The family of this 97-nucleotide sequence is "wcaG RNA". The family's consensus secondary structure is taken from published work. It is one of the family's seed sequences.

RNA sequence: CGAAGUCCUGGAAUGACUUGAAUCUUACCCUGGUGCGGAUGGGGCAACCCCGCCCAGUUUCUUGCUUCUGGAUAAAGAGCAAGUGGCGAGCCUGAAG
Dot-bracket structure: .........((((.(........))).))..........(((((...))))).[[[[...((((((.]]]]......))))))..............